[Rfam]
RNA sequence: GGACGGUGACGAAUUAUAUCGAAAGGUCUCGUUCGUCGUAAAUGGCGCAUCUUUGAUUCGCCUUGCCGACCAUCCUGAUAUAUCACCACCCAUAUUCUGAGUCU
Numbered sequence: 001g002g003a004c005g006g007u008g009a010c011g012a013a014u015u016a017u018a019u020c021g022a023a024a025g026g027u028c029u030c031g032u033u034c035g036u037c038g039u040a041a042a043u044g045g046c047g048c049a050u051c052u053u054u055g056a057u058u059c060g061c062c063u064u065g066c067c068g069a070c071c072a073u074c075c076u077g078a079u080a081u082a083u084c085a086c087c088a089c090c091c092a093u094a095u096u097c098u099g100a101g102u103c104u
Stems, first nucleotide, its partner, number of pairs: 001104004049064001

The record is a 104-nucleotide RNA from Asparagus officinalis, which matches "Small nucleolar RNA Z43" in Rfam. The family's consensus secondary structure was predicted with PFOLD. Gene Ontology terms of the family: RNA processing and nucleolus. On this family, see Chen et al., Nucleic Acids Res 2003: "The high diversity of snoRNAs in plants: identification and comparative study of 120 snoRNA genes from Oryza sativa". It is annotated as a C/D-box small nucleolar RNA. The family has 7 seed sequences and 859 matches in Rfam 15.1.